[Rfam]
RNA sequence: AUUGCUUCUUGAAUAACCGAUUGCGGCACUAUAUCAUUCGCAGGCGGUUCAGACAGGGGCAUAGAACAAAUCUGAAUCCCACGAAGGAAGGGUUAUUUCCAUUGGCCCUUCCUCGUUUGUAUUUCAUAUAGAUUUACAUAUGC
Numbered sequence: 001a002u003u004g005c006u007u008c009u010u011g012a013a014u015a016a017c018c019g020a021u022u023g024c025g026g027c028a029c030u031a032u033a034u035c036a037u038u039c040g041c042a043g044g045c046g047g048u049u050c051a052g053a054c055a056g057g058g059g060c061a062u063a064g065a066a067c068a069a070a071u072c073u074g075a076a077u078c079c080c081a082c083g084a085a086g087g088a089a090g091g092g093u094u095a096u097u098u099c100c101a102u103u104g105g106c107c108c109u110u111c112c113u114c115g116u117u118u119g120u121a122u123u124u125c126a127u128a129u130a131g132a133u134u135u136a137c138a139u140a141u142g143c
Stems, first nucleotide, its partner, number of pairs: 003061005009056001015049005021043002024040003073136006081116004087111001090108006118130005
The record is a 143-nucleotide RNA sequence from Dichanthelium oligosanthes, which matches "Small nucleolar RNA snoR138" in Rfam. Rfam links the family to the GO terms nucleolus and RNA processing. By type it is an H/ACA-box small nucleolar RNA. The literature on the family includes a 2009 paper in Nucleic Acids Res by Chen and Wu, "Mining small RNA sequencing data: a new approach to identify small nucleolar RNAs in Arabidopsis".